[Rfam]
RNA: Lysine riboswitch aptamer
RNA sequence: UCAAGCAGAAGAGGAGCACUACCCAGGUAGCUGUUUUGUGGAGCCACAACUCCAAGACAAAACAUUGAGGGGGAGUAGUGCCGAGGUGAAUCAUAAUGUGGUCAUGAUUUGUCGGGUGAAUGGGCUGAAUCCCUUCAACUGUCGUUAGUUCUAUCUAACGAAGAGCUUCUGAGGUA
Number, nucleotide and partner (000 for none) at each position: 001u000002c000003a000004a000005g000006c171007a170008g169009a168010a167011g166012a000013g000014g000015a000016g081017c080018a079019c078020u077021a076022c075023c000024c073025a000026g000027g000028u000029a000030g066031c000032u064033g063034u062035u061036u060037u059038g000039u000040g000041g000042a000043g000044c000045c000046a000047c000048a000049a000050c000051u000052c000053c000054a000055a000056g000057a000058c000059a037060a036061a035062a034063c033064a032065u000066u030067g000068a000069g000070g000071g000072g000073g024074a000075g022076u021077a020078g019079u018080g017081c016082c000083g000084a000085g113086g112087u111088g110089a109090a108091u107092c106093a105094u104095a000096a102097u000098g000099u000100g000101g000102u096103c000104a094105u093106g092107a091108u090109u089110u088111g087112u086113c085114g140115g139116g000117u137118g136119a135120a134121u000122g133123g132124g131125c000126u000127g000128a000129a000130u000131c124132c123133c122134u120135u119136c118137a117138a000139c115140u114141g000142u161143c160144g159145u158146u157147a156148g155149u000150u000151c000152u000153a000154u000155c148156u147157a146158a145159c144160g143161a142162a000163g000164a000165g000166c011167u010168u009169c008170u007171g006172a000173g000174g000175u000176a000